[Rfam]
RNA sequence: AUGCGUAGAAGUUUGCGUUAAGGCUCAACCAAAAAAUUUCUGAAAUUUAUUUUCAAGGAAUAAAAAAAUUAAAAAAAAAAAAAAGCCUGAGAAGGUCUGAGUUGCCGUCAUAAAAAAAAUAAACGAAACGAAAAAACAUGUUAAUGUUGAAGCAGUUACCAGAAAUCAAUAGAGAAAAGGGGGCUACAGUAAAAGAAAUUUUGUCCUAAAAAAACAAAAUGGAUACUCUCCUCUCUCUAUGUGAAAGAACUGCCUGGCAGAGCGCUUUAAGUUCAAUACGCAAAUCCUCUCUUCAAAAAGAGGAAAUCCAAUUCAGACUACUCUCUAUGCAU
Numbered sequence: 001a002u003g004c005g006u007a008g009a010a011g012u013u014u015g016c017g018u019u020a021a022g023g024c025u026c027a028a029c030c031a032a033a034a035a036a037u038u039u040c041u042g043a044a045a046u047u048u049a050u051u052u053u054c055a056a057g058g059a060a061u062a063a064a065a066a067a068a069u070u071a072a073a074a075a076a077a078a079a080a081a082a083a084a085g086c087c088u089g090a091g092a093a094g095g096u097c098u099g100a101g102u103u104g105c106c107g108u109c110a111u112a113a114a115a116a117a118a119a120u121a122a123a124c125g126a127a128a129c130g131a132a133a134a135a136a137c138a139u140g141u142u143a144a145u146g147u148u149g150a151a152g153c154a155g156u157u158a159c160c161a162g163a164a165a166u167c168a169a170u171a172g173a174g175a176a177a178a179g180g181g182g183g184c185u186a187c188a189g190u191a192a193a194a195g196a197a198a199u200u201u202u203g204u205c206c207u208a209a210a211a212a213a214a215c216a217a218a219a220u221g222g223a224u225a226c227u228c229u230c231c232u233c234u235c236u237c238u239a240u241g242u243g244a245a246a247g248a249a250c251u252g253c254c255u256g257g258c259a260g261a262g263c264g265c266u267u268u269a270a271g272u273u274c275a276a277u278a279c280g281c282a283a284a285u286c287c288u289c290u291c292u293u294c295a296a297a298a299a300g301a302g303g304a305a306a307u308c309c310a311a312u313u314c315a316g317a318c319u320a321c322u323c324u325c326u327a328u329g330c331a332u
Stems, first nucleotide, its partner, number of pairs: 001332004007326003012284007021088005035070005097316005103259004135148005152253006171238003285304006
RNA: Nuclear RNase P